RNA sequence: UGUCUCCUCCACCUCCUCCAUUGGUGGAUUCGGCCCAGGGCAGCAAUGUCCUGGGCCUUUUCUU
Dot-bracket structure: .......((((((.........))))))...((((((((..........)))))))).......
Numbered sequence: 001u002g003u004c005u006c007c008u009c010c011a012c013c014u015c016c017u018c019c020a021u022u023g024g025u026g027g028a029u030u031c032g033g034c035c036c037a038g039g040g041c042a043g044c045a046a047u048g049u050c051c052u053g054g055g056c057c058u059u060u061u062c063u064u
Stems, first nucleotide, its partner, number of pairs: 008028006032057008
Rfam assigns this 64-nucleotide sequence from Piscinibacter aquaticus to the family "Betaproteobacteria toxic small RNA".
It scores 65 bits against the family's covariance model.
For this family Rfam cites "A vast collection of microbial genes that are toxic to bacteria" (Kimelman et al., Genome Res, 2012).
Taxonomically the source falls in Piscinibacter (Bacteria, Pseudomonadati, Betaproteobacteria, Burkholderiales).
Rfam's curators write: Overexpression in amino aid rich medium attenuates growth, suggesting role in repressing amino acid intake and metabolism.